[Rfam]
Nucleotides: 167
Stems, first nucleotide, its partner, number of pairs: 001016005028167005035158001041151001043149001045146002049142001061141002073137003077133006084112004090105004
Number, partner (000 for none) and nucleotide at each position: 001016u002015g003014u004013a005012u006000c007000g008000u009000a010000a011000a012005g013004u014003g015002u016001a017000g018000a019000c020000g021000a022000g023000a024000a025000g026000a027000g028167g029166g030165g031164a032163u033000a034000g035158c036000g037000a038000a039000a040000c041151c042000g043149u044000a045146g046145c047000c048000c049142u050000a051000c052000g053000g054000a055000c056000a057000g058000a059000a060000a061141c062140c063000u064000g065000a066000u067000a068000a069000u070000a071000a072000g073137g074136c075135g076000u077133a078132u079131a080130u081129g082128g083000c084112g085111g086110g087109u088000a089000a090105g091104c092103u093102g094000g095000c096000a097000a098000g099000u100000a101000g102093c103092a104091g105090u106000g107000a108000a109087g110086c111085c112084c113000u114000a115000a116000a117000g118000u119000a120000g121000c122000u123000g124000u125000a126000a127000c128082c129081c130080a131079u132078a133077u134000g135075c136074g137073u138000a139000a140062g141061g142049g143000c144000a145046g146045c147000g148000a149043a150000a151041g152000a153000a154000c155000a156000c157000g158035g159000a160000c161000u162000u163032a164031u165030c166029c167028c
Rfam assigns this 167-nucleotide sequence from bacterium D16-59 to the family "Group II catalytic intron D1-D4-3".
It scores 64 bits against the family's covariance model.
Gene Ontology term of the family: Group II intron splicing.